[Rfam]
RNA sequence: AAUAUUUUAAACGGGAGCUUGUGUUACAGGCUGAGAGGAAGGUGUAACCUUCGACCGAUAACCUGAUUUGGGUAAUGCCAACGUAGGGAUGACUAAAAUACGCAAU
Numbered sequence: 001a002a003u004a005u006u007u008u009a010a011a012c013g014g015g016a017g018c019u020u021g022u023g024u025u026a027c028a029g030g031c032u033g034a035g036a037g038g039a040a041g042g043u044g045u046a047a048c049c050u051u052c053g054a055c056c057g058a059u060a061a062c063c064u065g066a067u068u069u070g071g072g073u074a075a076u077g078c079c080a081a082c083g084u085a086g087g088g089a090u091g092a093c094u095a096a097a098a099u100a101c102g103c104a105a106u
Stems, first nucleotide, its partner, number of pairs: 008092001010090001012057003017031005038052005062087004068081004

A member of the RNA family "TPP riboswitch aptamer (THI element)" from [Clostridium] cellulosi, 106 nucleotides long. Vitamin B(1) in its active form thiamin pyrophosphate (TPP) is an essential coenzyme that is synthesised by coupling of pyrimidine and thiazole moieties in bacteria.